[Rfam]
RNA sequence: GCCUAUGGUAGAGGUGCUAAAGUCAAUAGUAGUUAUUUUUAGUGGGUACACAGUGAGAAAUAAUGAAAGGGACAAUGGCCGAAGUGAAUGGAUAGACGUUGAAGUUCACUGGCAUUAUAAAUAAUAUUUAUGAUGUUGUCACUAAUUUUCGUGGAGAGCUACAAAGGUU
Number, nucleotide and partner (000 for none) at each position: 001g000002c000003c000004u000005a000006u164007g000008g162009u161010a160011g159012a000013g000014g000015u000016g079017c078018u077019a076020a000021a000022g073023u072024c071025a000026a000027u000028a000029g000030u000031a000032g064033u063034u062035a061036u060037u059038u058039u057040u000041a000042g000043u000044g000045g000046g000047u000048a000049c000050a000051c000052a000053g000054u000055g000056a000057g039058a038059a037060a036061u035062a034063a033064u032065g000066a000067a000068a000069g000070g000071g024072a023073c022074a000075a000076u019077g018078g017079c016080c000081g000082a000083a110084g109085u108086g107087a106088a105089u104090g000091g000092a000093u000094a099095g000096a000097c000098g000099u094100u000101g000102a000103a000104g089105u088106u087107c086108a085109c084110u083111g137112g136113c135114a134115u133116u132117a131118u130119a129120a128121a127122u000123a000124a000125u000126a000127u121128u120129u119130a118131u117132g116133a115134u114135g113136u112137u111138g000139u154140c153141a152142c151143u000144a149145a000146u000147u000148u000149u144150c000151g142152u141153g140154g139155a000156g000157a000158g000159c011160u010161a009162c008163a000164a006165a000166g000167g000168u000169u000
RNA: Lysine riboswitch aptamer
Organism: Clostridium bornimense